[Rfam]
RNA sequence: UUUAGGGGCUGAUGAAAGUGGAGUUCAGUAGACAACCCUUUUCAAGCCCUGCAAGAAACUGGGGUUUCUGGAGGAGAGGGAAGGUGCUGAAGGGGCUGCUCUCGUGAGCCUGAA
Numbered sequence: 001u002u003u004a005g006g007g008g009c010u011g012a013u014g015a016a017a018g019u020g021g022a023g024u025u026c027a028g029u030a031g032a033c034a035a036c037c038c039u040u041u042u043c044a045a046g047c048c049c050u051g052c053a054a055g056a057a058a059c060u061g062g063g064g065u066u067u068c069u070g071g072a073g074g075a076g077a078g079g080g081a082a083g084g085u086g087c088u089g090a091a092g093g094g095g096c097u098g099c100u101c102u103c104g105u106g107a108g109c110c111u112g113a114a
Base pairs, nucleotide, nucleotide: 006111007110008109009108010107012105013104014103015102017100018099019098020097021096024091025090026089027088032085033084037080038079039078040077041076042075043074044067045066046065047064048063049062050061051060
The family of this 114-nucleotide RNA from Macaca mulatta is "mir-765 microRNA precursor family". Taxonomically the source falls in Macaca (Eukaryota, Vertebrata, Mammalia, Primates).